[Rfam]
RNA sequence: UACUUAUCAAGAGAGGUAGAGGGACUGGCCCGAUGAUACCCGACAACCAGCAUUUAUAGCGAAAUGCAAUGGUGUCAAUUCCAUCAGAUUGUAAAAUCUGAAAGAUAAGGA
Dot-bracket structure: (.((((((....(.(((...(((..[[[)))......))))((((.((.(((((........)))))...))))))...(]]].((((((....))))))..))))))).)
Shown here is a 111-nucleotide RNA sequence from Clostridium estertheticum, a member of the family "SAM riboswitch aptamer (S box leader)". Taxonomically the source falls in Clostridium (Bacteria, Bacillota, Eubacteriales, Clostridiaceae). The match comes from Rfam's covariance-model search (93 bits).